[Rfam]
RNA sequence: AAAUGUGCCCUUUUAACAUUUCUCCAGUAGGUUUUCUCAAGGAGAAAGCCUCC
Numbered sequence: 001a002a003a004u005g006u007g008c009c010c011u012u013u014u015a016a017c018a019u020u021u022c023u024c025c026a027g028u029a030g031g032u033u034u035u036c037u038c039a040a041g042g043a044g045a046a047a048g049c050c051u052c053c
Stems, first nucleotide, its partner, number of pairs: 030050008
RNA: U7 small nuclear RNA